Shown here is a 144-nucleotide sequence from Rhynchospora breviuscula, a member of the family "MIR168 microRNA precursor family". The literature on the family includes a 2005 paper in Plant Cell by Lu et al., "Novel and mechanical stress-responsive MicroRNAs in Populus trichocarpa that are absent from Arabidopsis". Lineage of the source: Eukaryota > Embryophyta > Mesangiospermae > Cyperoideae > Rhynchospora.
RNA sequence: AUCGCCGCCGCUUCGGAUUCGCUUGGUGCAGGUCGGGAACCGACCCGACCCGAUCCGAUCCGAUCCGAUCGCCACCUCUCUUUCUGUCGGAUAAAUUGGUCGGAUCCCGCCUUGCAUCAACUGAAUCCGAGCCGGUUCGCGUCU
Numbered sequence: 001a002u003c004g005c006c007g008c009c010g011c012u013u014c015g016g017a018u019u020c021g022c023u024u025g026g027u028g029c030a031g032g033u034c035g036g037g038a039a040c041c042g043a044c045c046c047g048a049c050c051c052g053a054u055c056c057g058a059u060c061c062g063a064u065c066c067g068a069u070c071g072c073c074a075c076c077u078c079u080c081u082u083u084c085u086g087u088c089g090g091a092u093a094a095a096u097u098g099g100u101c102g103g104a105u106c107c108c109g110c111c112u113u114g115c116a117u118c119a120a121c122u123g124a125a126u127c128c129g130a131g132c133c134g135g136u137u138c139g140c141g142u143c144u
Stems, first nucleotide, its partner, number of pairs: 013130002017126004023120010034109005040103006
Gene Ontology terms of the family: miRNA-mediated post-transcriptional gene silencing and RISC complex.